About this RNA
The family of this 97-nucleotide RNA sequence from Streptococcus pyogenes is "TPP riboswitch aptamer (THI element)". Gene Ontology term of the family: thiamine pyrophosphate binding.
[Rfam]
RNA sequence: UAUUUCACAAAGGAGUGCUUUGGCUGAGAUCGCAAUUGCGAAAUCCUGAGGACCUGAUCUUGUUAGUACAAGCGUAGGGAUUGUGACCAAUAAUCAA
Numbered sequence: 001u002a003u004u005u006c007a008c009a010a011a012g013g014a015g016u017g018c019u020u021u022g023g024c025u026g027a028g029a030u031c032g033c034a035a036u037u038g039c040g041a042a043a044u045c046c047u048g049a050g051g052a053c054c055u056g057a058u059c060u061u062g063u064u065a066g067u068a069c070a071a072g073c074g075u076a077g078g079g080a081u082u083g084u085g086a087c088c089a090a091u092a093a094u095c096a097a
Base pairs, nucleotide, nucleotide: 006085007084008083009082010081011047012046013045014044016041017024018023031040032039033038053078054077055076056075059072060071061070062069